[Rfam]
RNA sequence: AAGAGCCUCGAGUAAAUAAAGACUGAGGAGAUUUGACUUAGGAAUAAA
Numbered sequence: 001a002a003g004a005g006c007c008u009c010g011a012g013u014a015a016a017u018a019a020a021g022a023c024u025g026a027g028g029a030g031a032u033u034u035g036a037c038u039u040a041g042g043a044a045u046a047a048a
Base pairs, nucleotide, nucleotide: 007042008041010039011038012037013036014034015033016032017031
RNA: Plastid-rpl16 group II-D1 intron
Organism: Tetracentron sinense